[Rfam]
RNA: DUF805b RNA
Nucleotides: 033
Stems, first nucleotide, its partner, number of pairs: 002021004010032003
Number, partner (000 for none) and nucleotide at each position: 001000a002021a003020a004019g005018c006000g007000g008000u009000u010032g011031c012030c013000g014000a015000a016000a017000a018005g019004c020003u021002u022000u023000u024000a025000g026000a027000g028000u029000a030012g031011g032010c033000u